Shown here is a 265-nucleotide part of an RNA from Paraglaciecola hydrolytica, a member of the family "Bacterial large subunit ribosomal RNA". It scores 2872 bits against the family's covariance model.
RNA sequence: GGAUGAUUGAGGGGAGCUGCUCCUAGUACGAGAGGACCGGAGUGGACGAACCGCUGGUGUUCGGGUUGUCAUGCCAAUGGCAUUGCCCGGUAGCUACGUUCGGAAUCGAUAACCGCUGAAAGCAUCUAAGCGGGAAGCGAGCCCCAAGAUGAGUCAUCCCUGGCAAUUUAAUUGUCCUAAAGGGUUGUUGAAGACUACGACGUUGAUAGGCAGGGUGUGGAAGUGUCGUAAGGCAUUAAGCUAACCUGUACUAAUUGCCCGUGAG
Numbered sequence: 001g002g003a004u005g006a007u008u009g010a011g012g013g014g015a016g017c018u019g020c021u022c023c024u025a026g027u028a029c030g031a032g033a034g035g036a037c038c039g040g041a042g043u044g045g046a047c048g049a050a051c052c053g054c055u056g057g058u059g060u061u062c063g064g065g066u067u068g069u070c071a072u073g074c075c076a077a078u079g080g081c082a083u084u085g086c087c088c089g090g091u092a093g094c095u096a097c098g099u100u101c102g103g104a105a106u107c108g109a110u111a112a113c114c115g116c117u118g119a120a121a122g123c124a125u126c127u128a129a130g131c132g133g134g135a136a137g138c139g140a141g142c143c144c145c146a147a148g149a150u151g152a153g154u155c156a157u158c159c160c161u162g163g164c165a166a167u168u169u170a171a172u173u174g175u176c177c178u179a180a181a182g183g184g185u186u187g188u189u190g191a192a193g194a195c196u197a198c199g200a201c202g203u204u205g206a207u208a209g210g211c212a213g214g215g216u217g218u219g220g221a222a223g224u225g226u227c228g229u230a231a232g233g234c235a236u237u238a239a240g241c242u243a244a245c246c247u248g249u250a251c252u253a254a255u256u257g258c259c260c261g262u263g264a265g
Base pairs, nucleotide, nucleotide: 001159002158003157004156005155006154007153008152011145012144013143014142017045018044019043020042021041022040023039047102048101049100050099051098055096056095057094062089063088064087065086066085067082068081069080070079071078072077106140107139108138113133114132115131116130117129162177163176179262182260183259184258185257186202187201188200189199190198207253208252209251210249211248212247213246214245217241220237223236224235225234226233227232
Dot-bracket structure: ((((((((..((((..(((((((...............))))))).(((((...(((....(((((((((((....))))))..)))))....))).)))))...(((....(((((...........)))))....))).))))......))))))))..((............)).(..(((((((((.......)))))....((((((((..(..(..(((((....))))))...)...))))).)))...)))).)...